[Rfam]
RNA sequence: UGUCCGAGUCGCGACUGGCGUUCGGAUGGUUGACCAUCGGGGAGCGACUGACACACGGUUGGUGGCCGUACGCCUGGGCCACGACA
Numbered sequence: 001u002g003u004c005c006g007a008g009u010c011g012c013g014a015c016u017g018g019c020g021u022u023c024g025g026a027u028g029g030u031u032g033a034c035c036a037u038c039g040g041g042g043a044g045c046g047a048c049u050g051a052c053a054c055a056c057g058g059u060u061g062g063u064g065g066c067c068g069u070a071c072g073c074c075u076g077g078g079c080c081a082c083g084a085c086a
Base pairs, nucleotide, nucleotide: 003053007049008048009047010046011045012044015041016040017074018073019072020071021070026037027036028035029034063081064080065079066078067077
RNA: ZMP/ZTP riboswitch aptamer (pfl RNA motif)